[Rfam]
RNA sequence: UUCCGCGAAAUCUAUUGAAGUAGAGCAUUUAAAAACUUUUUCUGGGGUAGAGCACUCAUUGAGCUAGGGGGCUUAAAAACUUACUGAACUCUUAGAAACUCCGAAUACGGAAAAAGGUGAUUUAAAUAGACAGACAUUAGGCGCUAAGGUCUUUUGUCAAGAGGGAAACAGCCCAGAUUGAUCGCUAAGGUCUCUAAAUAAUAUUCUAAGUGAAAAAGGAAGUGAGAAAAUGAUUACAACCAGUAGGUAGGCUUGGAAGCAGCCAUCCUUUAAAGAAAGCGUAAUAGCUCAUUGGUCUAGUUUUUUUGCGCCUAAAAUGUAUCGAGACUUAAGAUAUUUACCGAAGCGGCAAGUUUUAUUUAAGAUAAAACGGUAGCGGAACAUUCUGUAUGUUGAUAAAGAUAUGUUGUAAAAUAUAUUGAAGAUAUCAGAAAAGAAAAU
Numbered sequence: 001u002u003c004c005g006c007g008a009a010a011u012c013u014a015u016u017g018a019a020g021u022a023g024a025g026c027a028u029u030u031a032a033a034a035a036c037u038u039u040u041u042c043u044g045g046g047g048u049a050g051a052g053c054a055c056u057c058a059u060u061g062a063g064c065u066a067g068g069g070g071g072c073u074u075a076a077a078a079a080c081u082u083a084c085u086g087a088a089c090u091c092u093u094a095g096a097a098a099c100u101c102c103g104a105a106u107a108c109g110g111a112a113a114a115a116g117g118u119g120a121u122u123u124a125a126a127u128a129g130a131c132a133g134a135c136a137u138u139a140g141g142c143g144c145u146a147a148g149g150u151c152u153u154u155u156g157u158c159a160a161g162a163g164g165g166a167a168a169c170a171g172c173c174c175a176g177a178u179u180g181a182u183c184g185c186u187a188a189g190g191u192c193u194c195u196a197a198a199u200a201a202u203a204u205u206c207u208a209a210g211u212g213a214a215a216a217a218g219g220a221a222g223u224g225a226g227a228a229a230a231u232g233a234u235u236a237c238a239a240c241c242a243g244u245a246g247g248u249a250g251g252c253u254u255g256g257a258a259g260c261a262g263c264c265a266u267c268c269u270u271u272a273a274a275g276a277a278a279g280c281g282u283a284a285u286a287g288c289u290c291a292u293u294g295g296u297c298u299a300g301u302u303u304u305u306u307u308g309c310g311c312c313u314a315a316a317a318u319g320u321a322u323c324g325a326g327a328c329u330u331a332a333g334a335u336a337u338u339u340a341c342c343g344a345a346g347c348g349g350c351a352a353g354u355u356u357u358a359u360u361u362a363a364g365a366u367a368a369a370a371c372g373g374u375a376g377c378g379g380a381a382c383a384u385u386c387u388g389u390a391u392g393u394u395g396a397u398a399a400a401g402a403u404a405u406g407u408u409g410u411a412a413a414a415u416a417u418a419u420u421g422a423a424g425a426u427a428u429c430a431g432a433a434a435a436g437a438a439a440a441u
Base pairs, nucleotide, nucleotide: 001381002380003379004378005377006376011024012023013022014021015020026129027127028126029125030124031123032122033121036116037115038114039113040112041111042110043109044108050102051100052099056096057095061091062090063089067085068084069082070081071080073078133158134157135156136155139152140151141150142149163174164173165172178352179351180350183348184347185346189342190341191340198339200338201337202336203335204334206333218312219311222309223308224307225306226305227304228303229302230301231300239296240295241294242293243292245269246268247267250264251263252262270274275290279288280287353371354370355369356368357367358366359365360364382436384433385432386431387430388429392426393425394424401420402419403418404417405416406415407414408413
Bacterial large subunit ribosomal RNA: a 441-nucleotide part of an RNA. It scores 2027 bits against the family's covariance model.